The family of this 102-nucleotide RNA is "dinG RNA". The sequence is in the family's curated seed alignment. By type it is a small RNA.
[Rfam]
RNA sequence: UAUGAUACUUCUGCUUUGAACGCCUCACCGCAUUGAGCAGCCCGGCAGGAUGACCGGGAGAACGCAUCACCCUCAUUUGAGAGAGAAUGAGGGGCGGCUUCU
Numbered sequence: 001u002a003u004g005a006u007a008c009u010u011c012u013g014c015u016u017u018g019a020a021c022g023c024c025u026c027a028c029c030g031c032a033u034u035g036a037g038c039a040g041c042c043c044g045g046c047a048g049g050a051u052g053a054c055c056g057g058g059a060g061a062a063c064g065c066a067u068c069a070c071c072c073u074c075a076u077u078u079g080a081g082a083g084a085g086a087a088u089g090a091g092g093g094g095c096g097g098c099u100u101c102u
Base pairs, nucleotide, nucleotide: 011040012039013038014037015036041058042057043056044055045054059102060101061100062099064098065097072091073090074089075088076087